[Rfam]
RNA: Lysine riboswitch aptamer
RNA sequence: UUUUUAGGUAGAGGUUGCAAACAACAGGAGUACCUUAAGGGAGUUAGACAAAAGCUAUGAUCUUAAGAAAAAGGGGAGUUUGCCGAAAUAUAAUUGACUUGUCAUCAAUUGUGUUGGGAAUAUGGAGAAUAUCCAUAUGACUGUCAUUAGUUUACUAAUGGUGCGCUAUCAGAGGU
Dot-bracket structure: ......(((((.....((((((..(........(((((((....................))))))).......)..))))))...(((((((((((.......)))))))))))((..(((((((.....)))))))..)).(((((((....)))))))....)))))......